The record is an 86-nucleotide sequence from Soboliphyme baturini, which matches "Selenocysteine transfer RNA" in Rfam. Pairs were carried over by alignment from the consensus structure, which is taken from published work.

RNA sequence: GCCUGAUUGAUCCUCGAUGGUUCGGGGUGUAGGCUUCAAACCUGCAGUCGACUAACGUCGAAGUGGUUCGAUUCCACCUAUCGGGC
Numbered sequence: 001g002c003c004u005g006a007u008u009g010a011u012c013c014u015c016g017a018u019g020g021u022u023c024g025g026g027g028u029g030u031a032g033g034c035u036u037c038a039a040a041c042c043u044g045c046a047g048u049c050g051a052c053u054a055a056c057g058u059c060g061a062a063g064u065g066g067u068u069c070g071a072u073u074c075c076a077c078c079u080a081u082c083g084g085g086c
Base pairs, nucleotide, nucleotide: 001086002085003084004083005082006081007080009078012027013026014025015024016023017022028046029045030044031043032042033041048061049060050059051058052057063077064076065075066074